[Rfam]
RNA sequence: AACAUCCUUUCCUUGGGGUUGUGCUGCGGUCCAGUGAGGGCAUAGUGAGGACGGUACUGCCAUCACCUACAUGGCUUGGCCACAUCCACUAGAGCUUUGCUUUACAUUGGUGCAAUUUUUGGGGAA
Dot-bracket structure: .....((((.....))))..(((..((.((((.....(.......)..)))).))..)))......................((((...((((((...))))))....))))..............
Numbered sequence: 001a002a003c004a005u006c007c008u009u010u011c012c013u014u015g016g017g018g019u020u021g022u023g024c025u026g027c028g029g030u031c032c033a034g035u036g037a038g039g040g041c042a043u044a045g046u047g048a049g050g051a052c053g054g055u056a057c058u059g060c061c062a063u064c065a066c067c068u069a070c071a072u073g074g075c076u077u078g079g080c081c082a083c084a085u086c087c088a089c090u091a092g093a094g095c096u097u098u099g100c101u102u103u104a105c106a107u108u109g110g111u112g113c114a115a116u117u118u119u120u121g122g123g124g125a126a
Stems, first nucleotide, its partner, number of pairs: 006018004021060003026055002029052004038046001083112004090104006

Description: The record is a 126-nucleotide sequence from Otolemur garnettii, which matches "U4atac minor spliceosomal RNA" in Rfam. For this family Rfam cites "Evolutionary conservation of minor U12-type spliceosome between plants and humans" (Lorkovic et al., RNA, 2005). Rfam classes the family as a spliceosomal small nuclear RNA. A search with the family's covariance model found it, with a score of 72 bits. Pairs were carried over by alignment from the consensus structure, which is taken from published work. Taxonomically the source falls in Otolemur (Eukaryota, Amniota, Primates, Lorisiformes). U4atac is an essential component of the minor U12-type spliceosome complex which is required for removal of the rarer class of eukaryotic introns (AT-AC, U12-type).